[Rfam]
RNA sequence: ACAGUACAAACUGAGCAGGCGAUGAAUCCAACGGGUUCGUGGGGCUGGGCUGAAACAGCAACAGAUUGAAUUAUUCACAUCUGUGGGACAGUA
Numbered sequence: 001a002c003a004g005u006a007c008a009a010a011c012u013g014a015g016c017a018g019g020c021g022a023u024g025a026a027u028c029c030a031a032c033g034g035g036u037u038c039g040u041g042g043g044g045c046u047g048g049g050c051u052g053a054a055a056c057a058g059c060a061a062c063a064g065a066u067u068g069a070a071u072u073a074u075u076c077a078c079a080u081c082u083g084u085g086g087g088a089c090a091g092u093a
Stems, first nucleotide, its partner, number of pairs: 010092004016087001018046003022040006049059004061084006